This 151-nucleotide RNA sequence from Plectus sambesii belongs to the Rfam family "Nematode snoRNA ceN88".
[Rfam]
RNA sequence: AACCUCCUAUCUUGGCGCUCGUCCAGCUUUCUACUGGUCGAUGUGUAUGCAGAUGGAGGAAGAUUGUGUCCCUUUAUAGGGAAUGCCGGGCCUCCUUCGGUGUCAGCGUGUAAAGCAUACGCUGAUAUCAUCCUCUGGGCUCGCGACAAUU
Numbered sequence: 001a002a003c004c005u006c007c008u009a010u011c012u013u014g015g016c017g018c019u020c021g022u023c024c025a026g027c028u029u030u031c032u033a034c035u036g037g038u039c040g041a042u043g044u045g046u047a048u049g050c051a052g053a054u055g056g057a058g059g060a061a062g063a064u065u066g067u068g069u070c071c072c073u074u075u076a077u078a079g080g081g082a083a084u085g086c087c088g089g090g091c092c093u094c095c096u097u098c099g100g101u102g103u104c105a106g107c108g109u110g111u112a113a114a115g116c117a118u119a120c121g122c123u124g125a126u127a128u129c130a131u132c133c134u135c136u137g138g139g140c141u142c143g144c145g146a147c148a149a150u151u
Stems, first nucleotide, its partner, number of pairs: 003059005010052001015046004020040002069082005084145002087143007099129002103125006